[Rfam]
RNA sequence: AGCACAAAUGAUGACUUGGGACUUAAUACUGAAGUAUGAUGUCACUUUUGAGCAGAAACUGAUGUGC
Numbered sequence: 001a002g003c004a005c006a007a008a009u010g011a012u013g014a015c016u017u018g019g020g021a022c023u024u025a026a027u028a029c030u031g032a033a034g035u036a037u038g039a040u041g042u043c044a045c046u047u048u049u050g051a052g053c054a055g056a057a058a059c060u061g062a063u064g065u066g067c
Stems, first nucleotide, its partner, number of pairs: 002067005
The family of this 67-nucleotide RNA from Chordeiles acutipennis is "Small nucleolar RNA SNORD82".
snoRNA U82 or Z25 is found in both humans and mice.
By type it is a C/D-box small nucleolar RNA.
The family's consensus secondary structure was predicted with PFOLD.